[Rfam]
RNA sequence: AAAAGUAGAAGAGGCAGUUGCGGACUCAAUACUUAUUUAGGGUCUGAGGAAAGUCCGGGCUCCCAAAAGACCAAGCCUGCUGGAUAACGCCCAGUGCGAGUGAUCGUGAGGAUAGUGCCACAGAAAAAUACCGCCAAAGUAGAUUAAUUAUUAUUGUUUAGUCACUUCAGGUAAGGGUGCAAAGGUGCGGUAAGAGCGCACCAGCAGUGUCGUGAGAUACUGGCUCGGUAAACCCCGGCGGGGAGCAAGGUCGAAGGAACAAUGGUUGGUCUUUUUCCGGUUCCAUUGCAUUAUAGAUUUAUUUGUAAUGUUUGGUGUACCGCAAGAGGUGUCUGGUAACAGGCAUCCCAGAUAGAUAACUGCCCUCAAAGCUUGUUUGAGUUGAGAGAACAGAACCCGGCUUACUUCCUACUUUUUCCU
Numbered sequence: 001a002a003a004a005g006u007a008g009a010a011g012a013g014g015c016a017g018u019u020g021c022g023g024a025c026u027c028a029a030u031a032c033u034u035a036u037u038u039a040g041g042g043u044c045u046g047a048g049g050a051a052a053g054u055c056c057g058g059g060c061u062c063c064c065a066a067a068a069g070a071c072c073a074a075g076c077c078u079g080c081u082g083g084a085u086a087a088c089g090c091c092c093a094g095u096g097c098g099a100g101u102g103a104u105c106g107u108g109a110g111g112a113u114a115g116u117g118c119c120a121c122a123g124a125a126a127a128a129u130a131c132c133g134c135c136a137a138a139g140u141a142g143a144u145u146a147a148u149u150a151u152u153a154u155u156g157u158u159u160a161g162u163c164a165c166u167u168c169a170g171g172u173a174a175g176g177g178u179g180c181a182a183a184g185g186u187g188c189g190g191u192a193a194g195a196g197c198g199c200a201c202c203a204g205c206a207g208u209g210u211c212g213u214g215a216g217a218u219a220c221u222g223g224c225u226c227g228g229u230a231a232a233c234c235c236c237g238g239c240g241g242g243g244a245g246c247a248a249g250g251u252c253g254a255a256g257g258a259a260c261a262a263u264g265g266u267u268g269g270u271c272u273u274u275u276u277c278c279g280g281u282u283c284c285a286u287u288g289c290a291u292u293a294u295a296g297a298u299u300u301a302u303u304u305g306u307a308a309u310g311u312u313u314g315g316u317g318u319a320c321c322g323c324a325a326g327a328g329g330u331g332u333c334u335g336g337u338a339a340c341a342g343g344c345a346u347c348c349c350a351g352a353u354a355g356a357u358a359a360c361u362g363c364c365c366u367c368a369a370a371g372c373u374u375g376u377u378u379g380a381g382u383u384g385a386g387a388g389a390a391c392a393g394a395a396c397c398c399g400g401c402u403u404a405c406u407u408c409c410u411a412c413u414u415u416u417u418c419c420u
Stems, first nucleotide, its partner, number of pairs: 001416008010407001011405001013364007021046007029038001051403003055400005060245004069300002075239002078237002080094004095109001096107004110235002115233002117229003131176002133172003137167004142162001184202006204224001205222007249321003258312004263307001294305004328347008
Rfam assigns this 420-nucleotide RNA from Trichodesmium erythraeum to the family "Bacterial RNase P class A". The family's consensus secondary structure is taken from published work. Its family is annotated with dimeric ribonuclease P complex, tRNA processing and ribonuclease P activity in the Gene Ontology. Lineage of the source: Bacteria > Bacillati > Microcoleaceae > Trichodesmium > Trichodesmium erythraeum. By type it is a ribozyme.